[Rfam]
Nucleotides: 185
Stems, first nucleotide, its partner, number of pairs: 001166001005027002028164006038048001049149003057124006127143004
Number, partner (000 for none) and nucleotide at each position: 001166c002000g003000g004000g005027u006026c007000g008000g009000g010000a011000g012000g013000c014000g015000g016000a017000c018000g019000u020000c021000a022000c023000u024000c025000g026006g027005a028164g029163c030162c031161g032160g033159g034000g035000a036000c037000c038048c039000a040000c041000c042000a043000u044000c045000c046000u047000c048038g049149g050148g051147g052000u053000g054000a055000a056000u057124c058123g059122g060121u061120g062119u063000g064000u065000g066000g067000g068000c069000c070000c071000u072000g073000g074000g075000c076000g077000c078000c079000c080000g081000c082000c083000g084000u085000g086000a087000c088000g089000g090000c091000g092000u093000c094000a095000c096000g097000u098000c099000a100000c101000g102000g103000c104000g105000a106000g107000c108000c109000a110000c111000u112000u113000g114000g115000c116000c117000g118000a119062g120061c121060a122059c123058c124057g125000u126000a127143g128142g129141g130140c131000u132000g133000u134000c135000u136000u137000c138000c139000g140130g141129c142128c143127c144000g145000a146000a147051c148050c149049c150000g151000u152000c153000a154000g155000c156000u157000c158000a159033c160032c161031c162030g163029g164028u165000a166001g167000g168000c169000g170000g171000u172000c173000g174000g175000a176000g177000g178000a179000a180000g181000a182000a183000g184000g185000a
Shown here is a 185-nucleotide RNA sequence from Allostreptomyces psammosilenae, a member of the family "c-di-AMP riboswitch aptamer (ydaO/yuaA leader)". NCBI's taxonomy places the organism under Bacteria, Actinomycetota, Actinomycetes, Streptomycetaceae, Allostreptomyces.